[Rfam]
RNA sequence: GCUGACGUAGCUUAACCGGGUUAGAGCGGCUUUUUUGAUGCAUAUGAAUCAAAUAAAUAAGCAGAAUGCAGGUUCGAAUCCUGUCGUCAGCA
Number, nucleotide and partner (000 for none) at each position: 001g091002c090003u089004g088005a087006c086007g085008u000009a000010g027011c026012u025013u024014a000015a000016c000017c000018g000019g000020g000021u000022u000023a000024g013025a012026g011027c010028g000029g062030c061031u060032u059033u000034u000035u000036u000037g000038a000039u000040g000041c000042a000043u000044a000045u000046g000047a000048a000049u000050c000051a000052a000053a000054u000055a000056a000057a000058u000059a032060a031061g030062c029063a000064g000065a000066a000067u000068g084069c083070a082071g081072g080073u000074u000075c000076g000077a000078a000079u000080c072081c071082u070083g069084u068085c007086g006087u005088c004089a003090g002091c001092a000
Source information
The record is a 92-nucleotide sequence from Parabacteroides sp. PFB2-22, which matches "tRNA" in Rfam. Lineage of the source: Bacteria > Pseudomonadati > Bacteroidota > Bacteroidia > Parabacteroides. It scores 52 bits against the family's covariance model. From the family's description: Transfer RNA (tRNA) molecules are approximately 80 nucleotides in length. Their secondary structure includes four short double-helical elements and three loops (D, anti-codon, and T loops). Further hydrogen bonds mediate the characteristic L-shaped molecular structure. tRNAs have two regions of fundamental functional importance: the anti-codon, which is responsible for specific mRNA codon recognition, and the 3' end, to which the tRNAs corresponding amino acid is attached (by aminoacyl-tRNA synthetases). tRNAs cope with the degeneracy of the genetic code in two manners: having more than one tRNA (with a specific anti-codon) for a particular amino acid; and 'wobble' base-pairing, i.e. permitting non-standard base-pairing at the 3rd anti-codon position. It is annotated as a transfer RNA. The base pairs follow the family's consensus structure, which is taken from published work.